[Rfam]
RNA sequence: CCAGGGGCUUACGCCGCCUGGCUAUAUUCGGUCGGCCUUCCAGGCCU
Numbered sequence: 001c002c003a004g005g006g007g008c009u010u011a012c013g014c015c016g017c018c019u020g021g022c023u024a025u026a027u028u029c030g031g032u033c034g035g036c037c038u039u040c041c042a043g044g045c046c047u
Base pairs, nucleotide, nucleotide: 001021002020003019004018005017006015007014008013034046035045036044037043038042
Notes: Shown here is a 47-nucleotide RNA sequence from Bremerella alba, a member of the family "Acido-Lenti-1 RNA". A search with the family's covariance model found it, with a score of 38 bits. Taxonomically the source falls in Bremerella (Bacteria, Pseudomonadati, Planctomycetota, Pirellulaceae).